[Rfam]
RNA sequence: UGGCCGCGCUCAACAUUCAUUGCUGUCGGUGGGUUUCAGUCUAAACCAACUCACUGAUCAAUGAAUGCAAACUGCGGACCA
Numbered sequence: 001u002g003g004c005c006g007c008g009c010u011c012a013a014c015a016u017u018c019a020u021u022g023c024u025g026u027c028g029g030u031g032g033g034u035u036u037c038a039g040u041c042u043a044a045a046c047c048a049a050c051u052c053a054c055u056g057a058u059c060a061a062u063g064a065a066u067g068c069a070a071a072c073u074g075c076g077g078a079c080c081a
Stems, first nucleotide, its partner, number of pairs: 001081003004077005014067009025058007033050003

Notes
A member of the RNA family "mir-181 microRNA precursor family" from Loxodonta africana, 81 nucleotides long. Gene Ontology terms of the family: RISC complex and miRNA-mediated post-transcriptional gene silencing. Rfam 15.1 lists 3,490 matches to the family in 650 species. A reference for the family is Ambros (2001), "microRNAs: tiny regulators with great potential", Cell. Lineage of the source: Eukaryota > Teleostomi > Amniota > Mammalia > Loxodonta.